Rfam assigns this 344-nucleotide sequence from Clostridium grantii to the family "Bacterial RNase P class A". The source organism's lineage runs through Bacteria, Bacillota, Clostridia, Eubacteriales and Clostridium grantii.
RNA sequence: CGAGUAAGCUAAACGAUCGCUGCUACUGAAAAGUAGGAGAGGAAAGUCCGAGCUCCUUAGAGCAGGGUGCUGGGUAACACCCAGUGGAGGUAACUCCAAGGAAAGUGCAACAGAAAUAGACCGCCAUGGAAACAUGGUAAGGAUGGAAAGGCGAGGUAAGAGCUCACCAGCGCACUGGCGACUUUGCGGCUAUGUAAACCCCAUCUGGAGCAAGAUCAAAUAGGAAGACACAUGGGGCUGCUCGUCCUGUCUUCGGGUAAGAUCGCUUGAGCCUAUUGGUAACAAUGGGCCUAGAUAGAUGAUCGUUUUAAAAUACAGAACUCGGCUUACGACUUGCUCGUACC
Number, nucleotide and partner (000 for none) at each position: 001c340002g339003a338004g337005u336006a335007a334008g333009c000010u331011a000012a307013a306014c305015g304016a303017u302018c301019g000020c039021u038022g000023c036024u035025a034026c033027u032028g000029a000030a000031a000032a027033g026034u025035a024036g023037g000038a021039g020040a000041g000042g000043a000044a328045a327046g326047u000048c325049c324050g323051a322052g321053c210054u209055c208056c207057u000058u000059a000060g243061a242062g241063c240064a000065g206066g205067g204068u203069g202070c084071u083072g082073g081074g080075u000076a000077a000078c000079a000080c074081c073082c072083a071084g070085u099086g097087g096088a095089g094090g000091u000092a000093a000094c089095u088096c087097c086098a000099a085100g201101g200102a000103a000104a000105g199106u198107g195108c194109a193110a000111c000112a000113g000114a000115a000116a000117u000118a000119g000120a000121c142122c141123g138124c137125c136126a135127u134128g133129g000130a000131a000132a000133c128134a127135u126136g125137g124138u123139a000140a000141g122142g121143a000144u000145g000146g000147a000148a000149a000150g168151g167152c000153g165154a164155g163156g000157u000158a000159a000160g000161a000162g000163c155164u154165c153166a000167c151168c150169a000170g190171c188172g187173c186174a185175c000176u000177g182178g000179c000180g000181a000182c177183u000184u000185u174186g173187c172188g171189g000190c170191u000192a000193u109194g108195u107196a000197a000198a106199c105200c101201c100202c069203a068204u067205c066206u065207g056208g055209a054210g053211c000212a000213a000214g264215a263216u262217c261218a000219a000220a000221u000222a000223g000224g254225a253226a252227g251228a250229c249230a000231c000232a000233u000234g248235g247236g246237g245238c244239u000240g063241c062242u061243c060244g238245u237246c236247c235248u234249g229250u228251c227252u226253u225254c224255g000256g000257g000258u000259a000260a000261g217262a216263u215264c214265g000266c000267u000268u000269g000270a000271g290272c289273c288274u287275a286276u285277u284278g283279g000280u000281a000282a000283c278284a277285a276286u275287g274288g273289g272290c271291c000292u000293a000294g000295a000296u000297a000298g000299a000300u000301g018302a017303u016304c015305g014306u013307u012308u000309u000310a000311a000312a000313a000314u000315a000316c000317a000318g000319a000320a000321c052322u051323c050324g049325g048326c046327u045328u044329a000330c000331g010332a000333c008334u007335u006336g005337c004338u003339c002340g001341u000342a000343c000344c000

Rfam classes the family as a ribozyme. The family's consensus secondary structure is taken from published work.